[Rfam]
RNA: isrG Hfq binding RNA
RNA sequence: CUACGGUAGCUACUGAAGCUACAUUAGCUACUGUAGCUACUGAAGCUACAUUAGCUACUGUAGCUACUGUAGCUACUGAAGCUAAUGUAGCUACUGAAGCUACUGUAGCUAAUGUAGCUACAGUAGCUUCAGUAGCUACUGUAGCUACUGUAGCUACAGUAGCUACAGUAGCUACUGAAGCUAAUGUAGCUACUGAAGCUACUGUAGCUAAUGUAGCUACAGUAGCUUCAGUAGCUACUGUAGCUACUGUAGCUACAGUAGCUACAGUAGCUACUGAAGCUACUGUAGCUUCAGUAGCUACAGUAGCUACAGUAGCUACAUUAGCUUCAGUAGCUACAGUAGCUA
Numbered sequence: 001c002u003a004c005g006g007u008a009g010c011u012a013c014u015g016a017a018g019c020u021a022c023a024u025u026a027g028c029u030a031c032u033g034u035a036g037c038u039a040c041u042g043a044a045g046c047u048a049c050a051u052u053a054g055c056u057a058c059u060g061u062a063g064c065u066a067c068u069g070u071a072g073c074u075a076c077u078g079a080a081g082c083u084a085a086u087g088u089a090g091c092u093a094c095u096g097a098a099g100c101u102a103c104u105g106u107a108g109c110u111a112a113u114g115u116a117g118c119u120a121c122a123g124u125a126g127c128u129u130c131a132g133u134a135g136c137u138a139c140u141g142u143a144g145c146u147a148c149u150g151u152a153g154c155u156a157c158a159g160u161a162g163c164u165a166c167a168g169u170a171g172c173u174a175c176u177g178a179a180g181c182u183a184a185u186g187u188a189g190c191u192a193c194u195g196a197a198g199c200u201a202c203u204g205u206a207g208c209u210a211a212u213g214u215a216g217c218u219a220c221a222g223u224a225g226c227u228u229c230a231g232u233a234g235c236u237a238c239u240g241u242a243g244c245u246a247c248u249g250u251a252g253c254u255a256c257a258g259u260a261g262c263u264a265c266a267g268u269a270g271c272u273a274c275u276g277a278a279g280c281u282a283c284u285g286u287a288g289c290u291u292c293a294g295u296a297g298c299u300a301c302a303g304u305a306g307c308u309a310c311a312g313u314a315g316c317u318a319c320a321u322u323a324g325c326u327u328c329a330g331u332a333g334c335u336a337c338a339g340u341a342g343c344u345a
Stems, first nucleotide, its partner, number of pairs: 006337005012331003017326004026322001027307008037297007060076007080119005088111003092107003096103001120286002123283008132274006139267004144262005150157002162253002168247008312319002